[Rfam]
RNA sequence: GUGAGGUGAUGACGAAGUUUAUCCAUUCUCUGAGCGCAGCGGUACUGCCCUCCUGCAGCACACCAGUUCCUGUUCUAGGGACUGGGUGCUGUGCAGCUUCCAGAGACCCUCCAGUCUCCCAGUGUCCUACUGGGGGCUGCUGUGGUCUGUGGCUGGCUGCCUGCAGGAGUGAAGUAGUGUGCCAGCAGGGUUGGAGCCCCUCUUUGCGGGGGGCUCUCUCCCCGCUGAGAUGAGGGAUGAUGUCUGAUCAC
Numbered sequence: 001g002u003g004a005g006g007u008g009a010u011g012a013c014g015a016a017g018u019u020u021a022u023c024c025a026u027u028c029u030c031u032g033a034g035c036g037c038a039g040c041g042g043u044a045c046u047g048c049c050c051u052c053c054u055g056c057a058g059c060a061c062a063c064c065a066g067u068u069c070c071u072g073u074u075c076u077a078g079g080g081a082c083u084g085g086g087u088g089c090u091g092u093g094c095a096g097c098u099u100c101c102a103g104a105g106a107c108c109c110u111c112c113a114g115u116c117u118c119c120c121a122g123u124g125u126c127c128u129a130c131u132g133g134g135g136g137c138u139g140c141u142g143u144g145g146u147c148u149g150u151g152g153c154u155g156g157c158u159g160c161c162u163g164c165a166g167g168a169g170u171g172a173a174g175u176a177g178u179g180u181g182c183c184a185g186c187a188g189g190g191u192u193g194g195a196g197c198c199c200c201u202c203u204u205u206g207c208g209g210g211g212g213g214c215u216c217u218c219u220c221c222c223c224g225c226u227g228a229g230a231u232g233a234g235g236g237a238u239g240a241u242g243u244c245u246g247a248u249c250a251c
Base pairs, nucleotide, nucleotide: 010250011249012248017243018242020240023236024235026234027233028232030229031228034225035224039186040185042183043179044178045177046176047175048174050171051168052167053166054165055164056163057162061088062087063086064085066082067081068080069079070078071077093160094159095158096157097156098155106146107145112139113138114137115136116135118134119133120132121131122130123129124128188223189222190220193217194216195215197213198212199211200210201209202208

A member of the RNA family "Small nucleolar RNA SNORD17" from Heliornis fulica, 251 nucleotides long. Its family is annotated with nucleolus and RNA processing in the Gene Ontology. The literature on the family includes a 2001 paper in EMBO J by Huttenhofer et al., "RNomics: an experimental approach that identifies 201 candidates for novel, small, non-messenger RNAs in mouse". The source organism's lineage runs through Eukaryota, Craniata, Archosauria, Heliornithidae and Heliornis. The family has 19 seed sequences and 1,015 matches in Rfam 15.1. The family's RNA type in Rfam is C/D-box small nucleolar RNA.